The family of this 87-nucleotide RNA from Triticum aestivum is "MIR1120/MIR1122 microRNA precursor family". A reference for the family is Yao et al. (2007), "Cloning and characterization of microRNAs from wheat (Triticum aestivum L.)", Genome Biol. Lineage of the source: Eukaryota > Tracheophyta > Poales > Pooideae > Triticum.
RNA sequence: GUACUCCCUCUGUCCCAUAAUAUAAGAACGUUUUUGACACAACACUGGUGUUAAAAACGUUGUUAUAUUAUGAGACGGAGGGAGUAG
Numbered sequence: 001g002u003a004c005u006c007c008c009u010c011u012g013u014c015c016c017a018u019a020a021u022a023u024a025a026g027a028a029c030g031u032u033u034u035u036g037a038c039a040c041a042a043c044a045c046u047g048g049u050g051u052u053a054a055a056a057a058c059g060u061u062g063u064u065a066u067a068u069u070a071u072g073a074g075a076c077g078g079a080g081g082g083a084g085u086a087g
Stems, first nucleotide, its partner, number of pairs: 003085003007081005013075002016072002019069007027061014